[Rfam]
RNA: L4-Archaeoglobi ribosomal protein leades
RNA sequence: CUGAUGAUCGCGUCCGGGUCAAUUGCGCCCUCGCGCAACACCCGAUCUCUUUGCUCGUGCCCGACGGCCUGUCGGUCCGAAAGGGAGAGCGCGUCACACUCAG
Numbered sequence: 001c002u003g004a005u006g007a008u009c010g011c012g013u014c015c016g017g018g019u020c021a022a023u024u025g026c027g028c029c030c031u032c033g034c035g036c037a038a039c040a041c042c043c044g045a046u047c048u049c050u051u052u053g054c055u056c057g058u059g060c061c062c063g064a065c066g067g068c069c070u071g072u073c074g075g076u077c078c079g080a081a082a083g084g085g086a087g088a089g090c091g092c093g094u095c096a097c098a099c100u101c102a103g
Base pairs, nucleotide, nucleotide: 001103002102003101004100009093010092011091012090013089015044016043017042018041023038024037025036026035027034046088047087048086049085050084051080052079053078